The record is a 127-nucleotide RNA from Sphaeramia orbicularis, which matches "Small nucleolar RNA SNORA65" in Rfam. On this family, see Huttenhofer et al., EMBO J 2001: "RNomics: an experimental approach that identifies 201 candidates for novel, small, non-messenger RNAs in mouse". The family's RNA type in Rfam is H/ACA-box small nucleolar RNA.

Nucleotides: 127
Base pairs, nucleotide, nucleotide: 005047006046007045008044009043018034019033020031021029022028062120063119064118065117066115067114068113069112071109072108076105077104078103079102080101081100084097085096086095
Number, partner (000 for none) and nucleotide at each position: 001000c002000c003000c004000g005047c006046c007045a008044c009043u010000a011000u012000g013000c014000c015000c016000g017000u018034c019033u020031g021029u022028c023000u024000g025000a026000g027000u028022g029021a030000c031020u032000g033019a034018g035000u036000a037000u038000a039000c040000u041000c042000c043009a044008g045007u046006g047005g048000a049000g050000g051000c052000u053000c054000a055000g056000a057000g058000a059000g060000a061000c062120c063119c064118a065117g066115c067114u068113u069112u070000a071109g072108g073000a074000a075000a076105c077104a078103g079102g080101g081100u082000u083000g084097u085096u086095c087000a088000a089000a090000c091000u092000a093000a094000u095086g096085g097084a098000u099000a100081a101080c102079u103078c104077u105076g106000u107000g108072c109071c110000g111000a112069a113068a114067a115066g116000a117065c118064u119063g120062g121000a122000a123000c124000a125000u126000u127000c
The base pairs follow the family's consensus structure, which was predicted with RNAalifold.